The family of this 167-nucleotide RNA sequence from Salibacterium salarium is "Group II catalytic intron D1-D4-3". A search with the family's covariance model found it, with a score of 115 bits. The pairing is the family consensus, mapped onto this sequence. Group II introns are found in rRNA, tRNA and mRNA of organelles in fungi, plants and protists, and also in mRNA in bacteria. Rfam links the family to the GO term Group II intron splicing.
[Rfam]
RNA sequence: UCCAUAUUGAGGUGGAAUCUGAAGGAAGCCGGACGCAAAGUCCUGGGGUGACGAACAGAAACUGGAUAACAGGCUGACUAGAGACGGAUGAGUUUGCUUAACAAAAUUCAAUACUGCCCGAAUCUCUUACAGUAAAUCCAGCACCCUUUGGGAGGAAAGUGGUUAGA
Number, nucleotide and partner (000 for none) at each position: 001u016002c015003c014004a013005u012006a000007u000008u000009g000010a000011g000012g005013u004014g003015g002016a001017a000018u000019c000020u000021g000022a000023a000024g000025g000026a000027a000028g000029c166030c000031g164032g163033a000034c000035g160036c159037a000038a000039a000040g000041u153042c152043c151044u150045g149046g146047g145048g144049u143050g142051a000052c000053g000054a000055a000056c000057a000058g000059a000060a000061a000062c141063u140064g139065g138066a137067u136068a000069a000070c000071a000072g000073g133074c132075u131076g000077a000078c000079u000080a127081g126082a125083g124084a123085c000086g109087g108088a107089u106090g000091a000092g102093u101094u100095u000096g000097c000098u000099u000100a094101a093102c092103a000104a000105a000106a089107u088108u087109c086110a000111a000112u000113a000114c000115u000116g000117c000118c000119c000120g000121a000122a000123u084124c083125u082126c081127u080128u000129a000130c000131a075132g074133u073134a000135a000136a067137u066138c065139c064140a063141g062142c050143a049144c048145c047146c046147u000148u000149u045150g044151g043152g042153a041154g000155g000156a000157a000158a000159g036160u035161g000162g000163u032164u031165a000166g029167a000